[Rfam]
The family of this 83-nucleotide sequence from Carpinus fangiana is "Small nucleolar RNA Z155". A search with the family's covariance model found it, with a score of 49 bits. By type it is a C/D-box small nucleolar RNA. Pairs were carried over by alignment from the consensus structure. Gene Ontology terms of the family: nucleolus and RNA processing.

RNA sequence: CAUUGACGUGAUGAUACCGUGCUCGCCGUUCGGAAAAUACAAUGAUGUUGACUUAAAAACAGACUACAAUUAUCUGAUCAAUG
Numbered sequence: 001c002a003u004u005g006a007c008g009u010g011a012u013g014a015u016a017c018c019g020u021g022c023u024c025g026c027c028g029u030u031c032g033g034a035a036a037a038u039a040c041a042a043u044g045a046u047g048u049u050g051a052c053u054u055a056a057a058a059a060c061a062g063a064c065u066a067c068a069a070u071u072a073u074c075u076g077a078u079c080a081a082u083g
Stems, first nucleotide, its partner, number of pairs: 001083006